[Rfam]
RNA sequence: UGAUCCAUUGUAUUCUUUUAAUCAAGAAAAUUACACUCGAGUAAUUGAGUAUGAGGGAUCCUCUCCAUUCAUUCAUCUUUUCGAGUGUAUUUUCUUGAUUAAAGAAAUUCGUUGGAUCA
Numbered sequence: 001u002g003a004u005c006c007a008u009u010g011u012a013u014u015c016u017u018u019u020a021a022u023c024a025a026g027a028a029a030a031u032u033a034c035a036c037u038c039g040a041g042u043a044a045u046u047g048a049g050u051a052u053g054a055g056g057g058a059u060c061c062u063c064u065c066c067a068u069u070c071a072u073u074c075a076u077c078u079u080u081u082c083g084a085g086u087g088u089a090u091u092u093u094c095u096u097g098a099u100u101a102a103a104g105a106a107a108u109u110c111g112u113u114g115g116a117u118c119a
Stems, first nucleotide, its partner, number of pairs: 001119007012108002016104015032089006039082003
Notes
The record is a 119-nucleotide RNA sequence from Medicago truncatula, which matches "MIR1509 microRNA precursor family" in Rfam. The family's consensus secondary structure was predicted with RNAalifold. The match comes from Rfam's covariance-model search (90 bits). NCBI's taxonomy places the organism under Eukaryota, Embryophyta, Tracheophyta, Papilionoideae, Medicago.